[Rfam]
RNA sequence: CUCUCCUCCUGAUCUAGACUCUUCUCUUAGAGUAUUUGACAGACUGUGGUUGACACUCGAUCUAAAGGGGUGUCAGUUUGUCAAAUACCCCAAGAGAGG
Numbered sequence: 001c002u003c004u005c006c007u008c009c010u011g012a013u014c015u016a017g018a019c020u021c022u023u024c025u026c027u028u029a030g031a032g033u034a035u036u037u038g039a040c041a042g043a044c045u046g047u048g049g050u051u052g053a054c055a056c057u058c059g060a061u062c063u064a065a066a067g068g069g070g071u072g073u074c075a076g077u078u079u080g081u082c083a084a085a086u087a088c089c090c091c092a093a094g095a096g097a098g099g
Stems, first nucleotide, its partner, number of pairs: 024096004030090001032088014052074004057069002
The family of this 99-nucleotide RNA from Danio rerio is "mir-223 microRNA precursor family". The organism belongs to Danio, within Eukaryota. The base pairs follow the family's consensus structure, which was predicted with RNAalifold. Rfam links the family to the GO terms RISC complex and miRNA-mediated post-transcriptional gene silencing. For this family Rfam cites "Vertebrate microRNA genes" (Lim et al., Science, 2003). Rfam's curators put it in the seed alignment.